[Rfam]
RNA sequence: AUGAAGAUAGUGGGAGAGAGGUACAAUUGCCCACCGAAGAAGUAAAUCUUUCAGGUAAAAGGACCACUAUUGGACG
Number, nucleotide and partner (000 for none) at each position: 001a000002u000003g000004a000005a000006g071007a070008u069009a068010g067011u066012g065013g064014g000015a000016g000017a000018g000019a000020g031021g030022u029023a028024c000025a000026a000027u000028u023029g022030c021031c020032c000033a056034c055035c054036g052037a051038a000039g000040a050041a049042g048043u000044a000045a000046a000047u000048c042049u041050u040051u037052c036053a000054g035055g034056u033057a000058a000059a000060a000061g000062g000063a000064c013065c012066a011067c010068u009069a008070u007071u006072g000073g000074a000075c000076g000

This 76-nucleotide sequence from Clostridium isatidis belongs to the Rfam family "Glycine riboswitch aptamer".